[Rfam]
RNA sequence: CUUAAAUGCCUUGAAAACACACAUGCACCGUCACAUGGUCCCGGGUGCCGCGGGAAGGCCUUGCGAGGCCCAAUCAGCGGUCGGAUCCAUGGGGUGCGUGGAGGCCUAAC
Numbered sequence: 001c002u003u004a005a006a007u008g009c010c011u012u013g014a015a016a017a018c019a020c021a022c023a024u025g026c027a028c029c030g031u032c033a034c035a036u037g038g039u040c041c042c043g044g045g046u047g048c049c050g051c052g053g054g055a056a057g058g059c060c061u062u063g064c065g066a067g068g069c070c071c072a073a074u075c076a077g078c079g080g081u082c083g084g085a086u087c088c089a090u091g092g093g094g095u096g097c098g099u100g101g102a103g104g105c106c107u108a109a110c
Stems, first nucleotide, its partner, number of pairs: 022100008034091005039085003047081005

This 110-nucleotide RNA from Modicisalibacter ilicicola belongs to the Rfam family "t44 RNA". Rfam describes the family as follows. This family consists of a number of bacterial RNA genes of between 135 and 170 bases in length. The t44 gene has been identified in several species of enteric bacteria but homologs have also been identified in Pseudomonas and Coxiella species. The t44 gene is found between the map and rpsB genes in all species in the full alignment apart from Shigella flexneri. The function of this RNA is unknown. Lineage of the source: Bacteria > Oceanospirillales > Halomonadaceae > Modicisalibacter > Modicisalibacter ilicicola. The family's consensus secondary structure was predicted with LocARNA. The literature on the family includes a 2002 paper in Nucleic Acids Res by Tjaden et al., "Transcriptome analysis of Escherichia coli using high-density oligonucleotide probe arrays".